[Rfam]
RNA sequence: GGAGAGAAAGAUGGCAAGUUGUUGGCAUAGCAGGCCUCAGAGUUCAACAGCUAUGCCAACAUCUUGCCUUCCUUCGGGACC
Numbered sequence: 001g002g003a004g005a006g007a008a009a010g011a012u013g014g015c016a017a018g019u020u021g022u023u024g025g026c027a028u029a030g031c032a033g034g035c036c037u038c039a040g041a042g043u044u045c046a047a048c049a050g051c052u053a054u055g056c057c058a059a060c061a062u063c064u065u066g067c068c069u070u071c072c073u074u075c076g077g078g079a080c081c
Base pairs, nucleotide, nucleotide: 006075007074008073010071011070013068014067015066016065017064018063020061021060023058024057025056026055027054028053029052030051031050
Dot-bracket structure: .....(((.((.((((((.((.(((((((((..................))))))))).)).)))))).)).)))......